Small nucleolar RNA SNORA22: a 132-nucleotide RNA sequence from Cnephaeus nilssonii.
Rfam 15.1 lists 883 matches to the family in 606 species.
By type it is an H/ACA-box small nucleolar RNA.
The organism belongs to Cnephaeus, within Eukaryota.
From the family's description: ACA22 is a member of the H/ACA class of snoRNA that guide the sites of modification of uridines to pseudouridines.
Its family is annotated with RNA processing and nucleolus in the Gene Ontology.
[Rfam]
RNA sequence: GUUAACAAAAACCACACACAAGCUUUAUAGUUCCCUUGGCUUUGACUCUGUGCUAGAGCAAUGUCUGUUCUUUUCCUCUGCAUUGAAAGGACUGUUCAUCCUUUUAAAUGUAUUCAUAAAGUCAGCACAUUA
Number, nucleotide and partner (000 for none) at each position: 001g000002u000003u000004a000005a051006c050007a049008a000009a000010a047011a000012c000013c044014a043015c000016a000017c038018a037019c000020a000021a000022g031023c030024u029025u000026u000027a000028u000029a024030g023031u022032u000033c000034c000035c000036u000037u018038g017039g000040c000041u000042u000043u014044g013045a000046c000047u010048c000049u007050g006051u005052g000053c000054u000055a071056g070057a069058g068059c067060a066061a000062u000063g000064u000065c000066u060067g059068u058069u057070c056071u055072u000073u000074u000075c000076c000077u118078c000079u116080g115081c110082a109083u108084u107085g105086a104087a103088a102089g101090g100091a099092c000093u000094g000095u000096u000097c000098a000099u091100c090101c089102u088103u087104u086105u085106a000107a084108a083109u082110g081111u000112a000113u000114u000115c080116a079117u000118a077119a000120a000121g000122u000123c000124a000125g000126c000127a000128c000129a000130u000131u000132a000